[Rfam]
Rfam assigns this 79-nucleotide RNA to the family "RAGATH-18 RNA". By type it is a small RNA. It is one of the family's seed sequences.

RNA sequence: CUUGUGGACUGUUAUAUCAAAUGGAAGUAGAUUUUAUAUAUCAAGUAUAAAAACAAAACCAGACAGGAAGAAACAAGAA
Numbered sequence: 001c002u003u004g005u006g007g008a009c010u011g012u013u014a015u016a017u018c019a020a021a022u023g024g025a026a027g028u029a030g031a032u033u034u035u036a037u038a039u040a041u042c043a044a045g046u047a048u049a050a051a052a053a054c055a056a057a058a059c060c061a062g063a064c065a066g067g068a069a070g071a072a073a074c075a076a077g078a079a
Base pairs, nucleotide, nucleotide: 001077002076003075004074005073009066010065011064012063013062022061023060024059030054032052035049036048037047038046039045